[Rfam]
RNA: PhotoRC-II RNA
RNA sequence: UUGCUCACAUCUUCCCUCUAACCGAGAUCAAGGGGGUUACAUCUCUCAUAUCCACUAGUGAAGGGAUUAGUGGAAAUAACUGUAUCA
Dot-bracket structure: ............(((((.(....[[[[[.)))))).....]]]]]......(((((((........)))))))..............
Numbered sequence: 001u002u003g004c005u006c007a008c009a010u011c012u013u014c015c016c017u018c019u020a021a022c023c024g025a026g027a028u029c030a031a032g033g034g035g036g037u038u039a040c041a042u043c044u045c046u047c048a049u050a051u052c053c054a055c056u057a058g059u060g061a062a063g064g065g066a067u068u069a070g071u072g073g074a075a076a077u078a079a080c081u082g083u084a085u086c087a
Stems, first nucleotide, its partner, number of pairs: 013035005019030001024045005052073007